[Rfam]
RNA sequence: GGGACGGGCCGUGACUGGCGCUGCAGGUGGGUCACCACCGGGGAGCGGCCCCGUGGACCGAUACCCGUCGGCCGACGACUGCCGCGCGCCUGGGCUCCGACC
Numbered sequence: 001g002g003g004a005c006g007g008g009c010c011g012u013g014a015c016u017g018g019c020g021c022u023g024c025a026g027g028u029g030g031g032u033c034a035c036c037a038c039c040g041g042g043g044a045g046c047g048g049c050c051c052c053g054u055g056g057a058c059c060g061a062u063a064c065c066c067g068u069c070g071g072c073c074g075a076c077g078a079c080u081g082c083c084g085c086g087c088g089c090c091u092g093g094g095c096u097c098c099g100a101c102c
Base pairs, nucleotide, nucleotide: 003054006051007050008049009048010047011046012045015042016041017090018089019088020087021086027038028037029036030035081095082094083093
Source information:
Shown here is a 102-nucleotide sequence from Modestobacter versicolor, a member of the family "ZMP/ZTP riboswitch aptamer (pfl RNA motif)". The match comes from Rfam's covariance-model search (43 bits).